[Rfam]
RNA sequence: UUAAUACAAUCGUUAGGUGAGGCUCCUAUACAGAUACACGCUGCUGCCCGGAAACAUCGAGAGAUGCUAACGGGUCAACAAGUAUUACCGAAUUAAGGUUUUACUUAAUGCAGCUGGAGGAUGCUCCAAAGCUGUAUAGUGCCAAAGCUCAACGAAUUGAAAUGU
Numbered sequence: 001u002u003a004a005u006a007c008a009a010u011c012g013u014u015a016g017g018u019g020a021g022g023c024u025c026c027u028a029u030a031c032a033g034a035u036a037c038a039c040g041c042u043g044c045u046g047c048c049c050g051g052a053a054a055c056a057u058c059g060a061g062a063g064a065u066g067c068u069a070a071c072g073g074g075u076c077a078a079c080a081a082g083u084a085u086u087a088c089c090g091a092a093u094u095a096a097g098g099u100u101u102u103a104c105u106u107a108a109u110g111c112a113g114c115u116g117g118a119g120g121a122u123g124c125u126c127c128a129a130a131g132c133u134g135u136a137u138a139g140u141g142c143c144a145a146a147g148c149u150c151a152a153c154g155a156a157u158u159g160a161a162a163u164g165u
Stems, first nucleotide, its partner, number of pairs: 005161001007159004012153002014096001016149003021143003026139008040114005046075005055066004081105004087099003116127003
Dot-bracket structure: ....(.((((.(([.(((..(((..((((((((......(((((.(((((....((((....))))....))))).....((((..(((......])))..))))....))))).(((......)))....)))))))).)))...)))..))..)))).)....
RNA: M-box riboswitch aptamer (ykoK leader)
Organism: Thermoanaerobacter brockii